[Rfam]
RNA sequence: CCCAUAUCAAUAGCGCCAGAACUCGCAAGCGGAACGGGAAAUGUAGCGAAUAGCUGCUACUACGCGGUGAGUUGACGAGGUGAAGGUGUUCGAAACAUUCGGCGGGGACCUUCCGGCAUGAGGAGUGCCGUUAAGUUGGAGAGCAAAAACGUCUGGGCGACCAGGCUGACAAGUAUCCAACAACCUUUUAU
Numbered sequence: 001c002c003c004a005u006a007u008c009a010a011u012a013g014c015g016c017c018a019g020a021a022c023u024c025g026c027a028a029g030c031g032g033a034a035c036g037g038g039a040a041a042u043g044u045a046g047c048g049a050a051u052a053g054c055u056g057c058u059a060c061u062a063c064g065c066g067g068u069g070a071g072u073u074g075a076c077g078a079g080g081u082g083a084a085g086g087u088g089u090u091c092g093a094a095a096c097a098u099u100c101g102g103c104g105g106g107g108a109c110c111u112u113c114c115g116g117c118a119u120g121a122g123g124a125g126u127g128c129c130g131u132u133a134a135g136u137u138g139g140a141g142a143g144c145a146a147a148a149a150c151g152u153c154u155g156g157g158c159g160a161c162c163a164g165g166c167u168g169a170c171a172a173g174u175a176u177c178c179a180a181c182a183a184c185c186u187u188u189u190a191u
Base pairs, nucleotide, nucleotide: 020073021072022071023070024069025068026067082113083112084111085110086109090102091101092100093099114130115129116128117127118126119125135181136180137179138178139177140176149167151166152165153164154163155162156161
RNA: glmS glucosamine-6-phosphate activated ribozyme aptamer